[Rfam]
RNA: Small nucleolar RNA psi18S-841/snoR66
RNA sequence: UGCAAGGGCACUCUGUGUUAUUCAUUCCAUAUGAUAAUUACAAUUUGUUACCUUGCUAGAACAAAUCUAUCACAUCCUAUUCCUGGCAGCUUGCAUCUCGCUGUUUGGUCAUCUUGAUAGAAACAUUUU
Numbered sequence: 001u002g003c004a005a006g007g008g009c010a011c012u013c014u015g016u017g018u019u020a021u022u023c024a025u026u027c028c029a030u031a032u033g034a035u036a037a038u039u040a041c042a043a044u045u046u047g048u049u050a051c052c053u054u055g056c057u058a059g060a061a062c063a064a065a066u067c068u069a070u071c072a073c074a075u076c077c078u079a080u081u082c083c084u085g086g087c088a089g090c091u092u093g094c095a096u097c098u099c100g101c102u103g104u105u106u107g108g109u110c111a112u113c114u115u116g117a118u119a120g121a122a123a124c125a126u127u128u129u
Stems, first nucleotide, its partner, number of pairs: 002056006010048002014042003017038006024030001063127002068121001073116002080111001082108002085105003089101002
Dot-bracket structure: .((((((..((..(((((((((.(.....)..)))))).)))....))..))))))......((...(....((.....(.((.(((.((.........)).))).))..)...))....)....))..